A member of the RNA family "Bacterial RNase P class A" from Synechococcus sp. WH 5701, 409 nucleotides long. The base pairs follow the family's consensus structure, which is taken from published work.
RNA sequence: AAAGCAGGUGAGGUGGUCGCGAUCGAAGGGAUGACGCCGGCUUCGGCUGGUGGCUCCGGCUUCGGUUGAGGAAAGUCCGGGCUCCCCAAUGGCCAGGCUUGCUGGGUAACGCCCAGUGCGGGUGACCGUGAGGAGAGUGCCACAGAAACACACCGCCGAUGGCCGGGGCCUGGCCCCGCGCACAGGCAAGGGUGCAAGGGUGCGGUAAGAGCGCACCAGCAGCAUCGAGAGGUGCUGGCUCGGUAAACCCCGGCUAGGAGCAAGGCCCAGGGACAACGGUUGGCCAUGACACCCGUCCCGACACAAGUGAGCCGCUCGAGGCCGCCGGUAACGGCGGUCCCAGACAGAUGCCCACCCCGGUCCGCCCCGGCGGGCCGGAACAGAACCCGGCUUAUGUCCUGCUUUCACC
Numbered sequence: 001a002a003a004g005c006a007g008g009u010g011a012g013g014u015g016g017u018c019g020c021g022a023u024c025g026a027a028g029g030g031a032u033g034a035c036g037c038c039g040g041c042u043u044c045g046g047c048u049g050g051u052g053g054c055u056c057c058g059g060c061u062u063c064g065g066u067u068g069a070g071g072a073a074a075g076u077c078c079g080g081g082c083u084c085c086c087c088a089a090u091g092g093c094c095a096g097g098c099u100u101g102c103u104g105g106g107u108a109a110c111g112c113c114c115a116g117u118g119c120g121g122g123u124g125a126c127c128g129u130g131a132g133g134a135g136a137g138u139g140c141c142a143c144a145g146a147a148a149c150a151c152a153c154c155g156c157c158g159a160u161g162g163c164c165g166g167g168g169c170c171u172g173g174c175c176c177c178g179c180g181c182a183c184a185g186g187c188a189a190g191g192g193u194g195c196a197a198g199g200g201u202g203c204g205g206u207a208a209g210a211g212c213g214c215a216c217c218a219g220c221a222g223c224a225u226c227g228a229g230a231g232g233u234g235c236u237g238g239c240u241c242g243g244u245a246a247a248c249c250c251c252g253g254c255u256a257g258g259a260g261c262a263a264g265g266c267c268c269a270g271g272g273a274c275a276a277c278g279g280u281u282g283g284c285c286a287u288g289a290c291a292c293c294c295g296u297c298c299c300g301a302c303a304c305a306a307g308u309g310a311g312c313c314g315c316u317c318g319a320g321g322c323c324g325c326c327g328g329u330a331a332c333g334g335c336g337g338u339c340c341c342a343g344a345c346a347g348a349u350g351c352c353c354a355c356c357c358c359g360g361u362c363c364g365c366c367c368c369g370g371c372g373g374g375c376c377g378g379a380a381c382a383g384a385a386c387c388c389g390g391c392u393u394a395u396g397u398c399c400u401g402c403u404u405u406c407a408c409c
Stems, first nucleotide, its partner, number of pairs: 001405008011395001012356005018350001020068009073393003077390005082260004096255003100252002102116005117131001118129004132250002137248002139244003153191002155187003160182002199217006219239001220237007264313003272302001320339008